[Rfam]
RNA sequence: ACCACUAAGCCAUCCCUCCAGCCCAAAUGUAAAGUUUUUAAAAAAGGAAAACUGGGCUGGAGGGAUGGCUUAGUGGC
Numbered sequence: 001a002c003c004a005c006u007a008a009g010c011c012a013u014c015c016c017u018c019c020a021g022c023c024c025a026a027a028u029g030u031a032a033a034g035u036u037u038u039u040a041a042a043a044a045a046g047g048a049a050a051a052c053u054g055g056g057c058u059g060g061a062g063g064g065a066u067g068g069c070u071u072a073g074u075g076g077c
Stems, first nucleotide, its partner, number of pairs: 002076023
Rfam assigns this 77-nucleotide sequence from Jaculus jaculus to the family "mir-3473 microRNA precursor family".
It scores 75 bits against the family's covariance model.
Taxonomically the source falls in Jaculus (Eukaryota, Amniota, Theria, Glires).
The family has 5 seed sequences and 1,094 matches in Rfam 15.1.